[Rfam]
The record is a 92-nucleotide RNA sequence, which matches "freshwater-2 RNA" in Rfam.

RNA sequence: UUUGACAAUGAUGUUGAAGACUUAUGCGGGACUAAACACCGCGUAGUAGAUAGAACCUACAUUGGACUUCUUUUAAGGAGAAAACAAAAAAU
Numbered sequence: 001u002u003u004g005a006c007a008a009u010g011a012u013g014u015u016g017a018a019g020a021c022u023u024a025u026g027c028g029g030g031a032c033u034a035a036a037c038a039c040c041g042c043g044u045a046g047u048a049g050a051u052a053g054a055a056c057c058u059a060c061a062u063u064g065g066a067c068u069u070c071u072u073u074u075a076a077g078g079a080g081a082a083a084a085c086a087a088a089a090a091a092u
Stems, first nucleotide, its partner, number of pairs: 001018006023045007046060004
The family's consensus secondary structure is taken from published work.